[Rfam]
RNA sequence: GGAAGGCAUUCGUAUCCGGUGGUGCGGCCAGGCUUCAAACCUGGUUGGGGACGUCAAUCGUUCCCGGGUUGGUUCGACUCCAGCUGCCUUCC
Numbered sequence: 001g002g003a004a005g006g007c008a009u010u011c012g013u014a015u016c017c018g019g020u021g022g023u024g025c026g027g028c029c030a031g032g033c034u035u036c037a038a039a040c041c042u043g044g045u046u047g048g049g050g051a052c053g054u055c056a057a058u059c060g061u062u063c064c065c066g067g068g069u070u071g072g073u074u075c076g077a078c079u080c081c082a083g084c085u086g087c088c089u090u091c092c
Stems, first nucleotide, its partner, number of pairs: 001092008011026006027045006047065005069083004
RNA: Selenocysteine transfer RNA
Organism: Burkholderia glumae